[Rfam]
RNA: Bacterial large signal recognition particle RNA
Organism: Flavonifractor sp. An52
RNA sequence: CCGCACUAGUCGGGGAGUUAGCGGUGCCCUGUACCUGCAACCCGCUACAGCAGGGAUGAAUCCCGGCCCCCGGAUCUGCGUUGUGUCGUCUGACCCCGGUAAGUAGUGAUGAUGGAUCGGUCCCGCGCAAGGUCGCCCCGUGAACCGUGUCAGGCGGGGAACCGAGCAGCACUAAGCGGACCGCGAUCUGUGCCGCGGGGUUCCCGCUCCUGAGCCGGCUGCCAGGGUAACGGGCAUAGCGCUGAUUCCAAAGGUCGGUGUGCGG
Numbered sequence: 001c002c003g004c005a006c007u008a009g010u011c012g013g014g015g016a017g018u019u020a021g022c023g024g025u026g027c028c029c030u031g032u033a034c035c036u037g038c039a040a041c042c043c044g045c046u047a048c049a050g051c052a053g054g055g056a057u058g059a060a061u062c063c064c065g066g067c068c069c070c071c072g073g074a075u076c077u078g079c080g081u082u083g084u085g086u087c088g089u090c091u092g093a094c095c096c097c098g099g100u101a102a103g104u105a106g107u108g109a110u111g112a113u114g115g116a117u118c119g120g121u122c123c124c125g126c127g128c129a130a131g132g133u134c135g136c137c138c139c140g141u142g143a144a145c146c147g148u149g150u151c152a153g154g155c156g157g158g159g160a161a162c163c164g165a166g167c168a169g170c171a172c173u174a175a176g177c178g179g180a181c182c183g184c185g186a187u188c189u190g191u192g193c194c195g196c197g198g199g200g201u202u203c204c205c206g207c208u209c210c211u212g213a214g215c216c217g218g219c220u221g222c223c224a225g226g227g228u229a230a231c232g233g234g235c236a237u238a239g240c241g242c243u244g245a246u247u248c249c250a251a252a253g254g255u256c257g258g259u260g261u262g263c264g265g
Base pairs, nucleotide, nucleotide: 001265002264003263004262005261006260009057010056011055012030013029014028015027017025018024019023034054035053036052037051038050063258064257065256066255067254068253072248073247074246075245076244078242079241080240081239082238083237084236085235086234087233091229092228095226096225098223099222100221103219104218106215107214114210115209116208118206119205120204122199123198124197125196126195127194128190129189131188132187133186134185135184138179139178140177141176147172148171149170150169155164156163157162